RNA: Streptococcus sRNA SpR19
RNA sequence: GUGUUUCUUAGCGAGUCCGAGGUGGUGAAAGUCGGAUGAAACUGAAGUGAGUCGCUGGCGCUUUCGCUUAGCAAGGCUAAGUUAAAAUCAGAUAAAUGAAGUAAUAAAAUAGGGUGGAACCGCGUUUUAACG
Numbered sequence: 001g002u003g004u005u006u007c008u009u010a011g012c013g014a015g016u017c018c019g020a021g022g023u024g025g026u027g028a029a030a031g032u033c034g035g036a037u038g039a040a041a042c043u044g045a046a047g048u049g050a051g052u053c054g055c056u057g058g059c060g061c062u063u064u065c066g067c068u069u070a071g072c073a074a075g076g077c078u079a080a081g082u083u084a085a086a087a088u089c090a091g092a093u094a095a096a097u098g099a100a101g102u103a104a105u106a107a108a109a110u111a112g113g114g115u116g117g118a119a120c121c122g123c124g125u126u127u128u129a130a131c132g
Stems, first nucleotide, its partner, number of pairs: 001123002003120005008114002015072002021065002024062004030056003037049002078098002